[Rfam]
RNA sequence: CAUGAGUUUUGUGUCUAACUUUGAUCGUCCGUUUUAUUUUAAAUUUUUUAUGAUUAAUAUUUUUAUUGUUAUUAGAUUAUAAAACACAAAUAGUACUUUAUGUGUGACUUAUGUUCUUUAGUUUUUUCAAAAAAAAUUAAAUAAAACGGAUGAUUAAAGUUGGACACGGAAAUUCAUGG
Dot-bracket structure: .............((((((((((((((((((((((((.......................................................................................................))))))))))))))))))))))))...............